[Rfam]
RNA: mir-181 microRNA precursor family
RNA sequence: GGCCUCCGGGGAACAUUCAACGCUGUCGGUGAGUUUGGAACUCUGAGAGAAACCAUCGAUCGUUGACUGUACCCCUUAGGCU
Numbered sequence: 001g002g003c004c005u006c007c008g009g010g011g012a013a014c015a016u017u018c019a020a021c022g023c024u025g026u027c028g029g030u031g032a033g034u035u036u037g038g039a040a041c042u043c044u045g046a047g048a049g050a051a052a053c054c055a056u057c058g059a060u061c062g063u064u065g066a067c068u069g070u071a072c073c074c075c076u077u078a079g080g081c082u
Base pairs, nucleotide, nucleotide: 001082002081003080004079005078008075014069015068017066018065019064020063021062022061025060026059027058028057029056030055031054033053034052035051036050